The family of this 121-nucleotide sequence from Paenibacillus sambharensis is "pan motif". Pairs were carried over by alignment from the consensus structure, which is taken from published work. Lineage of the source: Bacteria > Bacillota > Caryophanales > Paenibacillaceae > Paenibacillus. It scores 37 bits against the family's covariance model.
RNA sequence: GAGGCGGUAUUCCAUACGGAAGCUGCACUCUUGGCCAGUAAUUCAAAUUUGCAAAGACAUGGAUAAACGUUCGUUCAGAUAAGCGCAUUCUGCUCUGAGCCGCAAGGACCGAGACAGAAGG
Numbered sequence: 001g002a003g004g005c006g007g008u009a010u011u012c013c014a015u016a017c018g019g020a021a022g023c024u025g026c027a028c029u030c031u032u033g034g035c036c037a038g039u040a041a042u043u044c045a046a047a048u049u050u051g052c053a054a055a056g057a058c059a060u061g062g063a064u065a066a067a068c069g070u071u072c073g074u075u076c077a078g079a080u081a082a083g084c085g086c087a088u089u090c091u092g093c094u095c096u097g098a099g100c101c102g103c104a105a106g107g108a109c110c111g112a113g114a115c116a117g118a119a120g121g
Base pairs, nucleotide, nucleotide: 001030002029003028004026005025006024007023008022010021011020090117091116092115093113094112095111097109100107101106